Source information: The family of this 80-nucleotide RNA from Pararge aegeria is "mir-2767 microRNA precursor family". A search with the family's covariance model found it, with a score of 70 bits. The base pairs follow the family's consensus structure, which was predicted with RNAalifold.
RNA sequence: UUUUAUUGUCGUUUCAAGUAAAUCUCGUGCGGCUUGUGUUUAAUUCACGCCGUAAGAGAUUUAUUUAAAUCGAUGAGAAA
Numbered sequence: 001u002u003u004u005a006u007u008g009u010c011g012u013u014u015c016a017a018g019u020a021a022a023u024c025u026c027g028u029g030c031g032g033c034u035u036g037u038g039u040u041u042a043a044u045u046c047a048c049g050c051c052g053u054a055a056g057a058g059a060u061u062u063a064u065u066u067a068a069a070u071c072g073a074u075g076a077g078a079a080a
Base pairs, nucleotide, nucleotide: 006076007075008074009073010072011071013069014068016066017065018064019063020062021061022060023059024058025057026056028054029053030052031051032050033049035047036046